Record summary: Shown here is a 118-nucleotide sequence from Pelotomaculum schinkii, a member of the family "Molybdenum/Tungsten riboswitch aptamer (Moco RNA motif)". NCBI's taxonomy places the organism under Bacteria, Bacillati, Bacillota, Eubacteriales, Pelotomaculum.
[Rfam]
RNA sequence: UUUAAUAAGUAUCUCCGAACCUGGCGACCUACGGUUAAAACUAUGGCGCCAGGUCCAUAGGGCUUAUCUGGAAACGGGUAAACCUCCCAUGGCGGAAAGGGGAUUGGCUGCAAAGCAU
Number, nucleotide and partner (000 for none) at each position: 001u000002u000003u112004a000005a000006u000007a000008a000009g000010u000011a104012u103013c102014u101015c100016c099017g000018a000019a054020c053021c052022u051023g050024g049025c048026g047027a000028c046029c045030u000031a000032c000033g042034g041035u040036u000037a000038a000039a000040a035041c034042u033043a000044u000045g029046g028047c026048g025049c024050c023051a022052g021053g020054u019055c000056c000057a000058u000059a000060g085061g084062g083063c000064u081065u080066a079067u078068c077069u076070g075071g000072a000073a000074a000075c070076g069077g068078g067079u066080a065081a064082a000083c062084c061085u060086c095087c094088c000089a000090u000091g000092g000093c000094g087095g086096a000097a000098a000099g016100g015101g014102g013103a012104u011105u000106g000107g000108c000109u000110g000111c000112a003113a000114a000115g000116c000117a000118u000